[Rfam]
RNA sequence: AUUAAAGAAAUUGAGCAGGCGGCAUACUUCAUACUUGGUAUAUUCAGCCGGGCUUCAUUAUGAGGCAGUGGACUUAUGAUCCAUGGGACAAUU
Dot-bracket structure: .........((((..(.(((.(.((((..........)))).)...)))..(((((.....))))).(((((.......)))))..).)))).
This 93-nucleotide sequence from Anaerobacterium chartisolvens belongs to the Rfam family "NiCo (Nickel/Cobalt) riboswitch aptamer". Taxonomically the source falls in Anaerobacterium (Bacteria, Bacillati, Bacillota, Clostridia). Its Rfam clan is "NiCo_riboswitches". A reference for the family is Furukawa et al. (2015), "Bacterial riboswitches cooperatively bind Ni(2+) or Co(2+) ions and control expression of heavy metal transporters", Mol Cell. The match comes from Rfam's covariance-model search (52 bits).